[Rfam]
RNA sequence: GGUGGUUGGUGGUGCUCUUCCCUGUGGCGGGUGGAGUAUUAACGCAUAGCUGUUAUCACAACAUGCAAAAUCUCUAACCCCGCUUAAUUAGCGGGUUUUUUUAU
Dot-bracket structure: ........((.(.(((((.(((......))).)))))..).)).................................(.(((((.......))))).).......